[Rfam]
RNA sequence: ACUAAUUAUCGAGAAUCUCAAAAAGAGAUAGCAACCUGCAAUAACGAGCAAGGUGCUAAAAUGAUAAGCCAAUACUUUGGAAAAAACGUUAAACCU
Numbered sequence: 001a002c003u004a005a006u007u008a009u010c011g012a013g014a015a016u017c018u019c020a021a022a023a024a025g026a027g028a029u030a031g032c033a034a035c036c037u038g039c040a041a042u043a044a045c046g047a048g049c050a051a052g053g054u055g056c057u058a059a060a061a062u063g064a065u066a067a068g069c070c071a072a073u074a075c076u077u078u079g080g081a082a083a084a085a086a087c088g089u090u091a092a093a094c095c096u
Base pairs, nucleotide, nucleotide: 006067007066008065009064010063015029016028017027018026019025030057031056032055035053036052037051038049039048042092044090069080070079071078072077
This 96-nucleotide sequence from Bizionia argentinensis belongs to the Rfam family "SAM-I/IV (S-adenosyl methionine) riboswitch aptamer". The source organism's lineage runs through Bacteria, Pseudomonadati, Flavobacteriia, Flavobacteriales and Bizionia argentinensis. For this family Rfam cites "The aptamer core of SAM-IV riboswitches mimics the ligand-binding site of SAM-I riboswitches" (Weinberg et al., RNA, 2008). Its Rfam clan is "SAM clan". The match comes from Rfam's covariance-model search (58 bits).